[Rfam]
RNA sequence: CCAAAGGCUCUUUUCAGAGCCACCCACAUUUUCAUGGGAGAACUG
Numbered sequence: 001c002c003a004a005a006g007g008c009u010c011u012u013u014u015c016a017g018a019g020c021c022a023c024c025c026a027c028a029u030u031u032u033c034a035u036g037g038g039a040g041a042a043c044u045g
Base pairs, nucleotide, nucleotide: 006021007020008019009018010017011016

Source information
The family of this 45-nucleotide sequence from Spermophilus dauricus is "Histone 3' UTR stem-loop". The match comes from Rfam's covariance-model search (42 bits). Taxonomically the source falls in Spermophilus (Eukaryota, Vertebrata, Gnathostomata, Teleostomi). The base pairs follow the family's consensus structure, which is taken from published work. Rfam's curators write: The mRNAs of metazoan histone genes lack a poly-A tail. 3' end processing occurs at a site between a highly conserved stem-loop (modelled by this family) and a purine rich region around 20 nts downstream (the histone downstream element, or HDE).